[Rfam]
RNA sequence: AAAAGGUGCUGCUGUUUUAAUAUUUGUCCAGUAGGUUUCCUCAAGGAGAAAGCCCAU
Numbered sequence: 001a002a003a004a005g006g007u008g009c010u011g012c013u014g015u016u017u018u019a020a021u022a023u024u025u026g027u028c029c030a031g032u033a034g035g036u037u038u039c040c041u042c043a044a045g046g047a048g049a050a051a052g053c054c055c056a057u
Stems, first nucleotide, its partner, number of pairs: 034054005040048003
RNA: U7 small nuclear RNA
Organism: Salmo salar